The record is a 366-nucleotide sequence from Luteimonas cucumeris, which matches "Bacterial RNase P class A" in Rfam. It scores 313 bits against the family's covariance model. The family's RNA type in Rfam is ribozyme. Pairs were carried over by alignment from the consensus structure, which is taken from published work. Taxonomically the source falls in Luteimonas (Bacteria, Pseudomonadati, Pseudomonadota, Lysobacterales).
[Rfam]
RNA sequence: GGAGCCGGCCAGACAACCGCGUCAUCCUGAGCCUUUCGGGGCGAUCGGGUGCCGAGGAAAGUCCGGGCUCCACAGGGCACGGUGCCAGGUAACGCCUGGGCGGCGCGAGCCGACGGAAAGUGCAACAGAAAGAUACCGCCGAACGGUUCUUCGGAAUGCGUGGCAAGGGUGAAAUGGUGCGGUAAGAGCGCACCGCGAGUCCGGCAACGGACCGGCACGGCAAACCCCACCGGGAGCAAGGCCAAAUAGGGACCCCAUGACGCGGCCCGCGUCGGGUCCGGGUAGGUUGCUUGAGCGUAGCGGCGACGCUGCGCCUAGAGGAAUGGUUGUCCACGACAGAACCCGGCUUAUCGGCCGGCUCCGCCC
Numbered sequence: 001g002g003a004g005c006c007g008g009c010c011a012g013a014c015a016a017c018c019g020c021g022u023c024a025u026c027c028u029g030a031g032c033c034u035u036u037c038g039g040g041g042c043g044a045u046c047g048g049g050u051g052c053c054g055a056g057g058a059a060a061g062u063c064c065g066g067g068c069u070c071c072a073c074a075g076g077g078c079a080c081g082g083u084g085c086c087a088g089g090u091a092a093c094g095c096c097u098g099g100g101c102g103g104c105g106c107g108a109g110c111c112g113a114c115g116g117a118a119a120g121u122g123c124a125a126c127a128g129a130a131a132g133a134u135a136c137c138g139c140c141g142a143a144c145g146g147u148u149c150u151u152c153g154g155a156a157u158g159c160g161u162g163g164c165a166a167g168g169g170u171g172a173a174a175u176g177g178u179g180c181g182g183u184a185a186g187a188g189c190g191c192a193c194c195g196c197g198a199g200u201c202c203g204g205c206a207a208c209g210g211a212c213c214g215g216c217a218c219g220g221c222a223a224a225c226c227c228c229a230c231c232g233g234g235a236g237c238a239a240g241g242c243c244a245a246a247u248a249g250g251g252a253c254c255c256c257a258u259g260a261c262g263c264g265g266c267c268c269g270c271g272u273c274g275g276g277u278c279c280g281g282g283u284a285g286g287u288u289g290c291u292u293g294a295g296c297g298u299a300g301c302g303g304c305g306a307c308g309c310u311g312c313g314c315c316u317a318g319a320g321g322a323a324u325g326g327u328u329g330u331c332c333a334c335g336a337c338a339g340a341a342c343c344c345g346g347c348u349u350a351u352c353g354g355c356c357g358g359c360u361c362c363g364c365c366c
Stems, first nucleotide, its partner, number of pairs: 001362010011351001012331007020054002023051005059349003063346005068236004075268004080232005085099005100114001101112004115227002120225002122221002136168002138164003144160002146157004176194006195216001196214002199212005240288004250279006259273005295314008